[Rfam]
RNA sequence: UUCCACUUAUUUUUCAACGUCGCCGGUUCUAGAAUCGAUGUGACCCCAAUAAGCUGGUAGAUAAGUUGUUACUCUGCCACACGUGUACUGGUAUCAUGCUGUAUGUGUUCCAAAGAUUUUACAAACAAUU
Numbered sequence: 001u002u003c004c005a006c007u008u009a010u011u012u013u014u015c016a017a018c019g020u021c022g023c024c025g026g027u028u029c030u031a032g033a034a035u036c037g038a039u040g041u042g043a044c045c046c047c048a049a050u051a052a053g054c055u056g057g058u059a060g061a062u063a064a065g066u067u068g069u070u071a072c073u074c075u076g077c078c079a080c081a082c083g084u085g086u087a088c089u090g091g092u093a094u095c096a097u098g099c100u101g102u103a104u105g106u107g108u109u110c111c112a113a114a115g116a117u118u119u120u121a122c123a124a125a126c127a128a129u130u
Stems, first nucleotide, its partner, number of pairs: 003057003007053002019044005024037003028033001073116003081108002084105005090100003